[Rfam]
mir-193 microRNA precursor family: a 75-nucleotide RNA sequence from Atractosteus spatula. Gene Ontology terms of the family: RISC complex and miRNA-mediated post-transcriptional gene silencing. The match comes from Rfam's covariance-model search (67 bits). The literature on the family includes a 2010 paper in Nature by Warren et al., "The genome of a songbird".
RNA sequence: UUUCAGAUGCGGGAUUUUGGGGGCGAGAUGAGUUUGAUCCCAGUCCAACUGGCCCGCAAAGUCCCGCUUCUGUGA
Number, nucleotide and partner (000 for none) at each position: 001u000002u000003u000004c072005a071006g070007a069008u000009g000010c066011g065012g064013g063014a000015u061016u060017u059018u058019g057020g000021g055022g054023g053024c052025g000026a050027g049028a000029u047030g046031a000032g000033u000034u000035u000036g000037a000038u000039c000040c000041c000042a000043g000044u000045c000046c030047a029048a000049c027050u026051g000052g024053c023054c022055c021056g000057c019058a018059a017060a016061g015062u000063c013064c012065c011066g010067c000068u000069u007070c006071u005072g004073u000074g000075a000